[Rfam]
RNA sequence: GGUCAUCCACAGGGGUGCUCCGUAUUGCCGGGGCUGAGACCUGGGCGCCAAGCCCUAAGACCCUAAAGCUGAUCUGGGUAAUACCAGCGGAGCGAGGCGGACUUCAUGUAUAG
Numbered sequence: 001g002g003u004c005a006u007c008c009a010c011a012g013g014g015g016u017g018c019u020c021c022g023u024a025u026u027g028c029c030g031g032g033g034c035u036g037a038g039a040c041c042u043g044g045g046c047g048c049c050a051a052g053c054c055c056u057a058a059g060a061c062c063c064u065a066a067a068g069c070u071g072a073u074c075u076g077g078g079u080a081a082u083a084c085c086a087g088c089g090g091a092g093c094g095a096g097g098c099g100g101a102c103u104u105c106a107u108g109u110a111u112a113g
Base pairs, nucleotide, nucleotide: 006101007100008099010097011064012063013062014061016058017034018033019032020031021030043055044054045053068093069092070091074087075086076085077084